[Rfam]
RNA: c-di-GMP-I riboswitch aptamer
RNA sequence: ACAGUUUAUGGCCAAACCUGUUGUGAAGCAGGGACGGAAAGCCAUGGGUCUUUGGUUGCAAAGAUCGCCAGGUUGCUUCU
Numbered sequence: 001a002c003a004g005u006u007u008a009u010g011g012c013c014a015a016a017c018c019u020g021u022u023g024u025g026a027a028g029c030a031g032g033g034a035c036g037g038a039a040a041g042c043c044a045u046g047g048g049u050c051u052u053u054g055g056u057u058g059c060a061a062a063g064a065u066c067g068c069c070a071g072g073u074u075g076c077u078u079c080u
Stems, first nucleotide, its partner, number of pairs: 012037002017032006040074004045070003048065007